[Rfam]
RNA sequence: UUCUUCUUUGAUACGAAUGCAUUCUAUUCACUGCACCAUUUAAAACAUUGAAUGAGUGGAGGGGAAAAGAAUUCUAGAUCAAAACUCGACAACGUCCUCAUACUAAGUAUGCGUCAAAAUUUGUUUUUAAAUAGGCAUUAUCUUGGAUUCUGCGUUUUCGAAAUAUUC
Numbered sequence: 001u002u003c004u005u006c007u008u009u010g011a012u013a014c015g016a017a018u019g020c021a022u023u024c025u026a027u028u029c030a031c032u033g034c035a036c037c038a039u040u041u042a043a044a045a046c047a048u049u050g051a052a053u054g055a056g057u058g059g060a061g062g063g064g065a066a067a068a069g070a071a072u073u074c075u076a077g078a079u080c081a082a083a084a085c086u087c088g089a090c091a092a093c094g095u096c097c098u099c100a101u102a103c104u105a106a107g108u109a110u111g112c113g114u115c116a117a118a119a120u121u122u123g124u125u126u127u128u129a130a131a132u133a134g135g136c137a138u139u140a141u142c143u144u145g146g147a148u149u150c151u152g153c154g155u156u157u158u159c160g161a162a163a164u165a166u167u168c
Stems, first nucleotide, its partner, number of pairs: 019074001022071002031061002034058002037054005087160003092155003103146003107142001108140001109138004114134001118125001
RNA: Small nucleolar RNA snR8